[Rfam]
RNA sequence: AAAUGCUAGGUGGGGAGUUAGCGGUGCCCUGUACUUGCAAUCCGCUUUAGCAAGGCUGAAUACCGGGAUUCGGGUAAUUAUAGUAACGUCGAGUUUAAUACGUAGUGUUGAUACUGAGGCACCUUAUGACGCAAGACUUAUGAACCAUGUCAGGUCUGGAAAGAAGCAGCAUUAAGUAGGGAUUUUGUGGGUGUAAGAAUUUGUUAAGGUUGAGCUGGCGACUAAACUAACGGUUGGUAUAAUUAUUCAACUCUCGGUUGCAUUU
Numbered sequence: 001a002a003a004u005g006c007u008a009g010g011u012g013g014g015g016a017g018u019u020a021g022c023g024g025u026g027c028c029c030u031g032u033a034c035u036u037g038c039a040a041u042c043c044g045c046u047u048u049a050g051c052a053a054g055g056c057u058g059a060a061u062a063c064c065g066g067g068a069u070u071c072g073g074g075u076a077a078u079u080a081u082a083g084u085a086a087c088g089u090c091g092a093g094u095u096u097a098a099u100a101c102g103u104a105g106u107g108u109u110g111a112u113a114c115u116g117a118g119g120c121a122c123c124u125u126a127u128g129a130c131g132c133a134a135g136a137c138u139u140a141u142g143a144a145c146c147a148u149g150u151c152a153g154g155u156c157u158g159g160a161a162a163g164a165a166g167c168a169g170c171a172u173u174a175a176g177u178a179g180g181g182a183u184u185u186u187g188u189g190g191g192u193g194u195a196a197g198a199a200u201u202u203g204u205u206a207a208g209g210u211u212g213a214g215c216u217g218g219c220g221a222c223u224a225a226a227c228u229a230a231c232g233g234u235u236g237g238u239a240u241a242a243u244u245a246u247u248c249a250a251c252u253c254u255c256g257g258u259u260g261c262a263u264u265u
Stems, first nucleotide, its partner, number of pairs: 001265006009057003012030004017025003034054005063257006072248005078242005084236004092228001094226004099221001102219002104216003113210003118205003123197004127191001130189005137180005147172004155164003
Rfam assigns this 265-nucleotide RNA from Gemella sp. GH3 to the family "Bacterial large signal recognition particle RNA". The family's consensus secondary structure is taken from published work. The match comes from Rfam's covariance-model search (139 bits). The source organism's lineage runs through Bacteria, Bacillati, Bacilli, Caryophanales and Gemella. By type it is a non-coding RNA gene.